The record is a 62-nucleotide RNA sequence from Macaca mulatta, which matches "U7 small nuclear RNA" in Rfam.

[Rfam]
RNA sequence: AAGUUUUAUAGCUCUUUUAGAAUUUGCCUAGCAGAUUUUCCAGUUUUUAUCAGAAAACCCUC
Numbered sequence: 001a002a003g004u005u006u007u008a009u010a011g012c013u014c015u016u017u018u019a020g021a022a023u024u025u026g027c028c029u030a031g032c033a034g035a036u037u038u039u040c041c042a043g044u045u046u047u048u049a050u051c052a053g054a055a056a057a058c059c060c061u062c
Stems, first nucleotide, its partner, number of pairs: 034059001036057005043050002
The literature on the family includes a 1987 paper in Science by Mowry and Steitz, "Identification of the human U7 snRNP as one of several factors involved in the 3' end maturation of histone premessenger RNA's". A search with the family's covariance model found it, with a score of 52 bits. The source organism's lineage runs through Eukaryota, Sarcopterygii, Tetrapoda, Eutheria and Macaca.